[Rfam]
RNA sequence: CUGACCGCAGGCAAUGGACUCUGCCUGAUUUCUUCUGAAAUCGAACCGCCCUCAGGGCUGAUGAUUCCUGCCUCGCC
Numbered sequence: 001c002u003g004a005c006c007g008c009a010g011g012c013a014a015u016g017g018a019c020u021c022u023g024c025c026u027g028a029u030u031u032c033u034u035c036u037g038a039a040a041u042c043g044a045a046c047c048g049c050c051c052u053c054a055g056g057g058c059u060g061a062u063g064a065u066u067c068c069u070g071c072c073u074c075g076c077c
Stems, first nucleotide, its partner, number of pairs: 010025004016068003020064002048058003
Shown here is a 77-nucleotide sequence from Acetobacter oeni, a member of the family "Fluoride riboswitch aptamer (crcB RNA motif)". The organism belongs to Acetobacter, within Bacteria. The base pairs follow the family's consensus structure, which is taken from published work.